Fluoride riboswitch aptamer (crcB RNA motif): a 60-nucleotide sequence from Clostridium ljungdahlii. Taxonomically the source falls in Clostridium (Bacteria, Clostridia, Eubacteriales, Clostridiaceae).

RNA sequence: UAUUUUAUAGGUGAUGGAGCUCACCUUUAAUUGCCUAUGGCUGAUAGCCCCUACUUUAAU
Numbered sequence: 001u002a003u004u005u006u007a008u009a010g011g012u013g014a015u016g017g018a019g020c021u022c023a024c025c026u027u028u029a030a031u032u033g034c035c036u037a038u039g040g041c042u043g044a045u046a047g048c049c050c051c052u053a054c055u056u057u058a059a060u
Base pairs, nucleotide, nucleotide: 010025011024012023013022016051017050019048020047021046033041034040035039